[Rfam]
RNA sequence: CAUCCUUAUGAAGAAGAAUAUUAGGAGAUAAAAGUAGUGGACUGAUAUCCAUUGAUGAGCAAUGAAUCUGAGGGAUG
Number, nucleotide and partner (000 for none) at each position: 001c077002a076003u075004c074005c073006u072007u000008a000009u000010g000011a000012a000013g000014a000015a000016g000017a000018a000019u000020a000021u000022u000023a000024g000025g000026a000027g000028a000029u000030a000031a000032a000033a000034g000035u000036a000037g000038u000039g000040g000041a000042c000043u000044g000045a000046u000047a000048u000049c000050c000051a000052u000053u000054g000055a000056u000057g000058a000059g000060c000061a000062a000063u000064g000065a000066a000067u000068c000069u000070g000071a000072g006073g005074g004075a003076u002077g001
RNA: Small nucleolar RNA R21